[Rfam]
RNA: Manganese Mn2+ riboswitch aptamer (yybP-ykoY)
Organism: Burkholderia pseudomallei
RNA sequence: CCGCUCCUCAUUGGGGAGUAGCCGCUCCGCUCGAGCCGACGCCGCCCGGCGCGCUCGUGACGGAGGCGUCCGUCAACAGACUUGGCCGUCGCGGCCAUGGCGGACGCAGCCCGCAGGGCCU
Numbered sequence: 001c002c003g004c005u006c007c008u009c010a011u012u013g014g015g016g017a018g019u020a021g022c023c024g025c026u027c028c029g030c031u032c033g034a035g036c037c038g039a040c041g042c043c044g045c046c047c048g049g050c051g052c053g054c055u056c057g058u059g060a061c062g063g064a065g066g067c068g069u070c071c072g073u074c075a076a077c078a079g080a081c082u083u084g085g086c087c088g089u090c091g092c093g094g095c096c097a098u099g100g101c102g103g104a105c106g107c108a109g110c111c112c113g114c115a116g117g118g119c120c121u
Stems, first nucleotide, its partner, number of pairs: 026064003066107010083097005